[Rfam]
RNA sequence: CCAACGUGGAUACUCCCGGGAGGUCACUCUCCCUGGGCUCUGUCCAGGUGGGGUAGAAGAGCAUCUGCCCCAUGAUGCACAGUCCAUUUCCACCACGCCUUGAGUCUGUACCUGCAUUCCUACAGCUUCUCAGGGUUCUGCGGACAGUGACAGAGGAGACAAACCAUUUGGAAACAGCU
Numbered sequence: 001c002c003a004a005c006g007u008g009g010a011u012a013c014u015c016c017c018g019g020g021a022g023g024u025c026a027c028u029c030u031c032c033c034u035g036g037g038c039u040c041u042g043u044c045c046a047g048g049u050g051g052g053g054u055a056g057a058a059g060a061g062c063a064u065c066u067g068c069c070c071c072a073u074g075a076u077g078c079a080c081a082g083u084c085c086a087u088u089u090c091c092a093c094c095a096c097g098c099c100u101u102g103a104g105u106c107u108g109u110a111c112c113u114g115c116a117u118u119c120c121u122a123c124a125g126c127u128u129c130u131c132a133g134g135g136u137u138c139u140g141c142g143g144a145c146a147g148u149g150a151c152a153g154a155g156g157a158g159a160c161a162a163a164c165c166a167u168u169u170g171g172a173a174a175c176a177g178c179u
Stems, first nucleotide, its partner, number of pairs: 002102003005097003008045005015037003019030004048093004059084002061080001064077001126158006135145004
Description:
A member of the RNA family "Small nucleolar RNA SNORA73 family" from Enhydra lutris, 179 nucleotides long. Clan: snR30-U17 clan. Rfam classes the family as an H/ACA-box small nucleolar RNA. The literature on the family includes a 1996 paper in RNA by Enright et al., "5'ETS rRNA processing facilitated by four small RNAs: U14, E3, U17, and U3". The base pairs follow the family's consensus structure, which is taken from published work.